[Rfam]
RNA sequence: GGCUUUCUGAAUCCGUGCUGAGAUUUCGUCAGACACCGACACACCAGGGGUGAUGGGAUUUCUGUGAUAAAUUAAGCA
Numbered sequence: 001g002g003c004u005u006u007c008u009g010a011a012u013c014c015g016u017g018c019u020g021a022g023a024u025u026u027c028g029u030c031a032g033a034c035a036c037c038g039a040c041a042c043a044c045c046a047g048g049g050g051u052g053a054u055g056g057g058a059u060u061u062c063u064g065u066g067a068u069a070a071a072u073u074a075a076g077c078a
Stems, first nucleotide, its partner, number of pairs: 002077004008071001011068003017062001020061003024058007

Shown here is a 78-nucleotide sequence from Schistosoma japonicum, a member of the family "mir-3492 microRNA precursor family". A search with the family's covariance model found it, with a score of 49 bits. Its family is annotated with RISC complex and miRNA-mediated post-transcriptional gene silencing in the Gene Ontology. The organism belongs to Schistosoma, within Eukaryota.